[Rfam]
RNA: Small nucleolar RNA SNORA70
Organism: Canis lupus
RNA sequence: CUGCAGCCAAUUAAGCUGACUGUGCUCUUUCCCCAUGGGGGCCCAGUGUGCCAGGGCUGCAAACAUUAGCCUCCUUGGUAUUGUAUGCAGCCUGUUGAUUGUAUGGGUUGCCCUAAGCAGCCUUGGAGACAGCC
Numbered sequence: 001c002u003g004c005a006g007c008c009a010a011u012u013a014a015g016c017u018g019a020c021u022g023u024g025c026u027c028u029u030u031c032c033c034c035a036u037g038g039g040g041g042c043c044c045a046g047u048g049u050g051c052c053a054g055g056g057c058u059g060c061a062a063a064c065a066u067u068a069g070c071c072u073c074c075u076u077g078g079u080a081u082u083g084u085a086u087g088c089a090g091c092c093u094g095u096u097g098a099u100u101g102u103a104u105g106g107g108u109u110g111c112c113c114u115a116a117g118c119a120g121c122c123u124u125g126g127a128g129a130c131a132g133c134c
Stems, first nucleotide, its partner, number of pairs: 003051003019047004025041004077122003088110006